[Rfam]
RNA sequence: UAAGUAAGUCAGAUAAUCGCGGGUAGCAUUUGCUACGUGAGGAAAGUCGGAGCUCCAUAGAGCAAGGGUGCUAGGUAACGCCUAGUGGGAGCGAUCCUAAGGAAAGUGCAACAGAAAAUUACCGCCUUCUUUUUAAGAAGGUAAGGAUGAAAAGGCGAGGUAAGAGCUCACCAGAUGCUAGAUGACUAGCAUGCUGUGUAAACCCCACCCGGAGCAAGACCAAGAUAGGAUAAAAAGGGUGCUGCUCGUACCCUCCGGUAGGUAGGUCGCUUGAGCCUAUUGGUGACGAUAGGCCUAGACAGAUGAUUAUCUAAUACAGAACUCCGCUUAUAGAUUUGCUUAUUAU
Numbered sequence: 001u002a003a004g005u006a007a008g009u010c011a012g013a014u015a016a017u018c019g020c021g022g023g024u025a026g027c028a029u030u031u032g033c034u035a036c037g038u039g040a041g042g043a044a045a046g047u048c049g050g051a052g053c054u055c056c057a058u059a060g061a062g063c064a065a066g067g068g069u070g071c072u073a074g075g076u077a078a079c080g081c082c083u084a085g086u087g088g089g090a091g092c093g094a095u096c097c098u099a100a101g102g103a104a105a106g107u108g109c110a111a112c113a114g115a116a117a118a119u120u121a122c123c124g125c126c127u128u129c130u131u132u133u134u135a136a137g138a139a140g141g142u143a144a145g146g147a148u149g150a151a152a153a154g155g156c157g158a159g160g161u162a163a164g165a166g167c168u169c170a171c172c173a174g175a176u177g178c179u180a181g182a183u184g185a186c187u188a189g190c191a192u193g194c195u196g197u198g199u200a201a202a203c204c205c206c207a208c209c210c211g212g213a214g215c216a217a218g219a220c221c222a223a224g225a226u227a228g229g230a231u232a233a234a235a236a237g238g239g240u241g242c243u244g245c246u247c248g249u250a251c252c253c254u255c256c257g258g259u260a261g262g263u264a265g266g267u268c269g270c271u272u273g274a275g276c277c278u279a280u281u282g283g284u285g286a287c288g289a290u291a292g293g294c295c296u297a298g299a300c301a302g303a304u305g306a307u308u309a310u311c312u313a314a315u316a317c318a319g320a321a322c323u324c325c326g327c328u329u330a331u332a333g334a335u336u337u338g339c340u341u342a343u344u345a346u
Stems, first nucleotide, its partner, number of pairs: 001342010011331001012311007020039002023036005044329003048326005053214004062246001066210005071085005086100001087098004101205002106203002108199003122146002124142008154172002157169003174194001175192007218268004225259002228256003238252005275294008
The record is a 346-nucleotide RNA from Romboutsia weinsteinii, which matches "Bacterial RNase P class A" in Rfam. Rfam's curators write: Ribonuclease P (RNase P) is a ubiquitous endoribonuclease, found in archaea, bacteria and eukarya as well as chloroplasts and mitochondria. The match comes from Rfam's covariance-model search (289 bits).